[Rfam]
Shown here is a 60-nucleotide RNA sequence from Paractinoplanes rishiriensis, a member of the family "Actino-pnp RNA". The family's consensus secondary structure is taken from published work.

RNA sequence: ACCGGUCCUCGGUAGUGGUUCCCGAGGCCUAGAUCUCGGGCACUUCGAUCGAAGACCGGC
Numbered sequence: 001a002c003c004g005g006u007c008c009u010c011g012g013u014a015g016u017g018g019u020u021c022c023c024g025a026g027g028c029c030u031a032g033a034u035c036u037c038g039g040g041c042a043c044u045u046c047g048a049u050c051g052a053a054g055a056c057c058g059g060c
Stems, first nucleotide, its partner, number of pairs: 002059006009052005017044003021040007
The source organism's lineage runs through Bacteria, Bacillati, Actinomycetes, Micromonosporales and Paractinoplanes.